[Rfam]
RNA sequence: AACGUUCAUCCCGCUCACAUGAGCCAUCGGGACGGAAGUAGGGCAACCCCCGAAGGAACGCGCC
Numbered sequence: 001a002a003c004g005u006u007c008a009u010c011c012c013g014c015u016c017a018c019a020u021g022a023g024c025c026a027u028c029g030g031g032a033c034g035g036a037a038g039u040a041g042g043g044c045a046a047c048c049c050c051c052g053a054a055g056g057a058a059c060g061c062g063c064c
Base pairs, nucleotide, nucleotide: 003060004059005058006057007056009032010031011030012029013028035061041051042050043049